[Rfam]
A member of the RNA family "Glycine riboswitch aptamer" from Microlunatus phosphovorus, 101 nucleotides long. Lineage of the source: Bacteria > Bacillati > Actinomycetota > Microlunatus > Microlunatus phosphovorus. Pairs were carried over by alignment from the consensus structure.

RNA sequence: UGAAGCAGCGCGGGAGAGACCACCAGGCUCGAUGACGCGCAGGUGGCGCCGAAGGGGCAACCUCCCCGGAACCUCUCAGGCACCCAGACCUCGCUGCGAUG
Numbered sequence: 001u002g003a004a005g006c007a008g009c010g011c012g013g014g015a016g017a018g019a020c021c022a023c024c025a026g027g028c029u030c031g032a033u034g035a036c037g038c039g040c041a042g043g044u045g046g047c048g049c050c051g052a053a054g055g056g057g058c059a060a061c062c063u064c065c066c067c068g069g070a071a072c073c074u075c076u077c078a079g080g081c082a083c084c085c086a087g088a089c090c091u092c093g094c095u096g097c098g099a100u101g
Stems, first nucleotide, its partner, number of pairs: 006096005012090002020046004048081003051077002055075003061069002